RNA sequence: GAUGAAUCUAUUGUCUGUCGAGCCCGAUGCUUACCGGCACCGGGGAGGGCAGCAAAAAGAGGACUCG
Numbered sequence: 001g002a003u004g005a006a007u008c009u010a011u012u013g014u015c016u017g018u019c020g021a022g023c024c025c026g027a028u029g030c031u032u033a034c035c036g037g038c039a040c041c042g043g044g045g046a047g048g049g050c051a052g053c054a055a056a057a058a059g060a061g062g063a064c065u066c067g
Base pairs, nucleotide, nucleotide: 011055012054013053015052016051017050018049019048023044024043025042026041028039029038030037031036
Shown here is a 67-nucleotide RNA sequence from Diaphorobacter aerolatus, a member of the family "ilvH RNA". A search with the family's covariance model found it, with a score of 73 bits.